[Rfam]
RNA sequence: UGCAUCCUUCGGCUUCUUUAUAGUGCUGCCUUGUGGCAUAUGGAUCAAGCAGCAUUGUACAGGGCUAUGAAGGCUGUA
Dot-bracket structure: .............((((.((((((((((.((((............)))))))))))))).))))..............